The record is a 73-nucleotide sequence from Acipenser ruthenus, which matches "mir-1905 microRNA precursor family" in Rfam. The family's consensus secondary structure was predicted with RNAalifold. Taxonomically the source falls in Acipenser (Eukaryota, Opisthokonta, Metazoa, Teleostomi).

RNA sequence: GUGUCUGCUGCUGGAUGCGUUUGAUGGUCGCCCCCUUAGGUCCCACCACCAGCCCCACCACUCUGUAGGGAAC
Numbered sequence: 001g002u003g004u005c006u007g008c009u010g011c012u013g014g015a016u017g018c019g020u021u022u023g024a025u026g027g028u029c030g031c032c033c034c035c036u037u038a039g040g041u042c043c044c045a046c047c048a049c050c051a052g053c054c055c056c057a058c059c060a061c062u063c064u065g066u067a068g069g070g071a072a073c
Base pairs, nucleotide, nucleotide: 004069005068006067007066008065010063012060013059014058017055019053020052021051023049025048026047027046028045030043033040034039